[Rfam]
RNA sequence: AGAAGUUAAGAGACGAUUUCUUAAUUUUUAACUAAAAAAGCUAAGAACCGAUUCUUAAAUAAGGAUUUUAAGAACUGGUUCUUAACUUUUUUAGUUAAAAAUUAAGAAACCGUUUUUUAAUUUUC
Numbered sequence: 001a002g003a004a005g006u007u008a009a010g011a012g013a014c015g016a017u018u019u020c021u022u023a024a025u026u027u028u029u030a031a032c033u034a035a036a037a038a039a040g041c042u043a044a045g046a047a048c049c050g051a052u053u054c055u056u057a058a059a060u061a062a063g064g065a066u067u068u069u070a071a072g073a074a075c076u077g078g079u080u081c082u083u084a085a086c087u088u089u090u091u092u093a094g095u096u097a098a099a100a101a102u103u104a105a106g107a108a109a110c111c112g113u114u115u116u117u118u119a120a121u122u123u124u125c
Base pairs, nucleotide, nucleotide: 002124003123004122005121006120007119008118009117010116011115012114013113014112015111017109018108019107020106021105022104023103024102025101026100027099028098029097030096031095032094033093034092035091036090037089038088039087042084043083044082045081046080047079
RNA: MIR9563 microRNA precursor family